[Rfam]
Annotation: This 186-nucleotide sequence from Nocardioides jejuensis belongs to the Rfam family "Actinobacteria sRNA Ms_IGR-5". NCBI's taxonomy places the organism under Bacteria, Bacillati, Actinomycetes, Propionibacteriales, Nocardioides. The match comes from Rfam's covariance-model search (113 bits). On this family, see Li et al., RNA 2013: "Identification of small RNAs in Mycobacterium smegmatis using heterologous Hfq".
RNA sequence: ACACGAGAAGGGAGGUGGUCCGCCAGAUGAUUUCUACAAGGACGCGUGAGGUGGCUGCGCGCUAGCGCACGCACAGGUGGCGUCGCCGCUGUGCUCAUCAGCUGCUGGCGAAUCCACCGCGGUCACCGCGACCCGCAGGCCCCGGCCCUCGUCCUGGCCGGUUCCAUGGCCUGCGGGUCGUGCGCA
Numbered sequence: 001a002c003a004c005g006a007g008a009a010g011g012g013a014g015g016u017g018g019u020c021c022g023c024c025a026g027a028u029g030a031u032u033u034c035u036a037c038a039a040g041g042a043c044g045c046g047u048g049a050g051g052u053g054g055c056u057g058c059g060c061g062c063u064a065g066c067g068c069a070c071g072c073a074c075a076g077g078u079g080g081c082g083u084c085g086c087c088g089c090u091g092u093g094c095u096c097a098u099c100a101g102c103u104g105c106u107g108g109c110g111a112a113u114c115c116a117c118c119g120c121g122g123u124c125a126c127c128g129c130g131a132c133c134c135g136c137a138g139g140c141c142c143c144g145g146c147c148c149u150c151g152u153c154c155u156g157g158c159c160g161g162u163u164c165c166a167u168g169g170c171c172u173g174c175g176g177g178u179c180g181u182g183c184g185c186a
Stems, first nucleotide, its partner, number of pairs: 015058005060110007067102002071094003129180013142161006